[Rfam]
RNA sequence: GUGUGAAUCCCAGGGCGCUUCUCCUUUGGCACGGAGGCAUACUUGUACUGAUGGUCGGAGUUGGCCAGGUGAAGAAGCUCCAGGCCGUGUCGCGCGUGCCAAAGGAGAAUUGCCCUGCGAUUCACCU
Numbered sequence: 001g002u003g004u005g006a007a008u009c010c011c012a013g014g015g016c017g018c019u020u021c022u023c024c025u026u027u028g029g030c031a032c033g034g035a036g037g038c039a040u041a042c043u044u045g046u047a048c049u050g051a052u053g054g055u056c057g058g059a060g061u062u063g064g065c066c067a068g069g070u071g072a073a074g075a076a077g078c079u080c081c082a083g084g085c086c087g088u089g090u091c092g093c094g095c096g097u098g099c100c101a102a103a104g105g106a107g108a109a110u111u112g113c114c115c116u117g118c119g120a121u122u123c124a125c126c127u
Stems, first nucleotide, its partner, number of pairs: 005123005011117007019109001021107004027101007
A member of the RNA family "mir-399 microRNA precursor family" from Triticum aestivum, 127 nucleotides long. mir-399 was identified in both Arabidopsis thaliana and Oryza sativa computationally and was later experimentally verified. mir-399 is thought to target mRNAs coding for a phosphatase transporter. The mature sequence is excised from the 3' arm of the hairpin. Pairs were carried over by alignment from the consensus structure, which was predicted with PFOLD. Gene Ontology terms of the family: RISC complex and miRNA-mediated post-transcriptional gene silencing. The literature on the family includes a 2004 paper in Mol Cell by Jones-Rhoades and Bartel, "Computational Identification of Plant MicroRNAs and Their Targets, Including a Stress-Induced miRNA".